Shown here is a 135-nucleotide sequence from Muraenolepis orangiensis, a member of the family "U11 spliceosomal RNA". The match comes from Rfam's covariance-model search (117 bits). Rfam classes the family as a spliceosomal small nuclear RNA. On this family, see Schneider et al., Proc Natl Acad Sci U S A 2004: "Identification of an evolutionarily divergent U11 small nuclear ribonucleoprotein particle in Drosophila". The family's consensus secondary structure is taken from published work.

[Rfam]
Nucleotides: 135
Stems, first nucleotide, its partner, number of pairs: 008086005013026005027057012058081007104133004109129005115124003
Number, partner (000 for none) and nucleotide at each position: 001000a002000a003000a004000a005000a006000g007000g008086g009085c010084u011083u012082c013026u014025g015024c016023u017022g018000u019000g020000a021000u022017u023016g024015g025014c026013a027057c028056a029055g030054g031053g032052a033051g034050g035049g036048u037047g038046g039000g040000g041000g042000c043000a044000a045000a046038c047037c048036a049035c050034c051033c052032u053031c054030c055029u056028u057027g058081c059080g060079g061078a062077a063076u064075c065000g066000a067000u068000a069000u070000c071000a072000a073000g074000a075064g076063a077062u078061u079060u080059c081058g082012g083011a084010a085009g086008c087000a088000c089000a090000a091000u092000u093000u094000u095000u096000u097000a098000a099000c100000u101000u102000c103000g104133g105132g106131g107130c108000u109129g110128c111127u112126a113125g114000u115124g116123a117122u118000c119000g120000a121000u122117a123116u124115c125113c126112u127111g128110g129109c130107g131106c132105c133104c134000c135000u